[Rfam]
RNA sequence: GAUUGUGGUAGUUUUCUUCCUGGCACAUGUGUUAUGUUUUCAAAUGGGCUUGACUCUGCCACAUAUGUUAUAUAGGAGCUGGCAGAGGCUUGGUGACAAAGAGGUCUCUUUCUAGCCUUUCCUGCACCAGAGAUGGGCUGUGAGGAAG
Numbered sequence: 001g002a003u004u005g006u007g008g009u010a011g012u013u014u015u016c017u018u019c020c021u022g023g024c025a026c027a028u029g030u031g032u033u034a035u036g037u038u039u040u041c042a043a044a045u046g047g048g049c050u051u052g053a054c055u056c057u058g059c060c061a062c063a064u065a066u067g068u069u070a071u072a073u074a075g076g077a078g079c080u081g082g083c084a085g086a087g088g089c090u091u092g093g094u095g096a097c098a099a100a101g102a103g104g105u106c107u108c109u110u111u112c113u114a115g116c117c118u119u120u121c122c123u124g125c126a127c128c129a130g131a132g133a134u135g136g137g138c139u140g141u142g143a144g145g146a147a148g
Stems, first nucleotide, its partner, number of pairs: 005062007022050003026046003030042002075141001077139004081090003107133005